[Rfam]
RNA: Mycobacterium sRNA Ms_AS-5
Organism: Mycolicibacterium sarraceniae
RNA sequence: GUCGGGAUAUUGUCCGGUGAAGAUCGUCGGCCGGCUUGGCACACA
Numbered sequence: 001g002u003c004g005g006g007a008u009a010u011u012g013u014c015c016g017g018u019g020a021a022g023a024u025c026g027u028c029g030g031c032c033g034g035c036u037u038g039g040c041a042c043a044c045a
Base pairs, nucleotide, nucleotide: 012032014030015029016028017027018026